The family of this 108-nucleotide RNA from Populus tomentosa is "MIR6440 microRNA precursor family". Its family is annotated with miRNA-mediated post-transcriptional gene silencing and RISC complex in the Gene Ontology. The family's consensus secondary structure was predicted with RNAalifold. The organism belongs to Populus, within Eukaryota.
RNA sequence: GGGUUAAAACUCUAAAUCGAUCAAACUCGGUCAAACUCGUAAAAUCGGUCCGAUUUUACCGAUUUUAAUCGAGUUUGACCGAGUUUGACCGAUUUUGAGUUUUAACCC
Numbered sequence: 001g002g003g004u005u006a007a008a009a010c011u012c013u014a015a016a017u018c019g020a021u022c023a024a025a026c027u028c029g030g031u032c033a034a035a036c037u038c039g040u041a042a043a044a045u046c047g048g049u050c051c052g053a054u055u056u057u058a059c060c061g062a063u064u065u066u067a068a069u070c071g072a073g074u075u076u077g078a079c080c081g082a083g084u085u086u087g088a089c090c091g092a093u094u095u096u097g098a099g100u101u102u103u104a105a106c107c108c
Stems, first nucleotide, its partner, number of pairs: 002107011014095005021088018039069002041066007